[Rfam]
RNA sequence: AGGGGGAGCACCGGAUCUUGGGCUGUGUCCCAGGCACCCUGUGCUCCCAGGCCUGCGCUGUGGGAUUCGGGUCCCAGAGUCACAGGCCCUCCA
Dot-bracket structure: .(((((......((..((.(((.(.(((((((.((.(...(.(((....)))).).))))..)))..)).).)))..))))......))))).
The record is a 93-nucleotide RNA sequence from Nyctereutes procyonoides, which matches "mir-8799 microRNA precursor family" in Rfam.
Rfam 15.1 lists 20,638 matches to the family in 5 species.
The family's consensus secondary structure was predicted with RNAalifold.
The match comes from Rfam's covariance-model search (48 bits).